This 68-nucleotide RNA from Sphingobacterium sp. SGL-16 belongs to the Rfam family "Fluoride riboswitch aptamer (crcB RNA motif)".
RNA sequence: AUAAUUAAAGGAAAUGGUGUUCUUCCUUAACCAACCGCUAAAAAAUAGCUGAUGACGCCUGAUGAGUU
Numbered sequence: 001a002u003a004a005u006u007a008a009a010g011g012a013a014a015u016g017g018u019g020u021u022c023u024u025c026c027u028u029a030a031c032c033a034a035c036c037g038c039u040a041a042a043a044a045a046u047a048g049c050u051g052a053u054g055a056c057g058c059c060u061g062a063u064g065a066g067u068u
Stems, first nucleotide, its partner, number of pairs: 010026004016059006037049004
Dot-bracket structure: .........[[[[..((((((.]]]]..........((((.....))))....)))))).........

For this family Rfam cites "An excited state underlies gene regulation of a transcriptional riboswitch" (Zhao et al., Nat Chem Biol, 2017). It scores 52 bits against the family's covariance model. Taxonomically the source falls in Sphingobacterium (Bacteria, Pseudomonadati, Sphingobacteriia, Sphingobacteriales). Rfam 15.1 lists 2,293 matches to the family in 1,982 species.